[Rfam]
RNA sequence: UGGUAGAUGCACCCUGAUGAUUUAACCUCCGAUGUUAAAGUCGGAGGUUUUUUGU
Numbered sequence: 001u002g003g004u005a006g007a008u009g010c011a012c013c014c015u016g017a018u019g020a021u022u023u024a025a026c027c028u029c030c031g032a033u034g035u036u037a038a039a040g041u042c043g044g045a046g047g048u049u050u051u052u053u054g055u
Base pairs, nucleotide, nucleotide: 002013003012004011026047027046028045029044030043031042032041033040
RNA: Nitrogen stress-induced RNA 1